[Rfam]
RNA sequence: CCACACAGCAUUGUACCCAAACUCUGUCCCCAGAUCGCACCUGGUGCUGUUAGACUAGAAUUAAAGUAUUUU
Numbered sequence: 001c002c003a004c005a006c007a008g009c010a011u012u013g014u015a016c017c018c019a020a021a022c023u024c025u026g027u028c029c030c031c032a033g034a035u036c037g038c039a040c041c042u043g044g045u046g047c048u049g050u051u052a053g054a055c056u057a058g059a060a061u062u063a064a065a066g067u068a069u070u071u072u
Stems, first nucleotide, its partner, number of pairs: 005050005017044003023034004

This 72-nucleotide sequence from Octodon degus belongs to the Rfam family "U1A polyadenylation inhibition element (PIE)". This family represents the U1A polyadenylation inhibition element (PIE). PIE is a regulatory RNA which is responsible for the regulation of the length of the polyA tail of the U1A pre-mRNA. The PIE is located in the U1A mRNA 3' UTR. PIE adopts a U-shaped structure, with binding sites for a single U1A protein at each bend and when complexed with the two proteins it blocks activity of poly(A) polymerase (PAP), and inhibits its activity. A search with the family's covariance model found it, with a score of 72 bits. The literature on the family includes a 2004 paper in Biochemistry by Clerte and Hall, "Global and Local Dynamics of the U1A Polyadenylation Inhibition Element (PIE) RNA and PIE RNA-U1A Complexes". The family's consensus secondary structure is taken from published work. Rfam classes the family as a cis-regulatory element. The organism belongs to Octodon, within Eukaryota. Its family is annotated with regulation of mRNA polyadenylation in the Gene Ontology.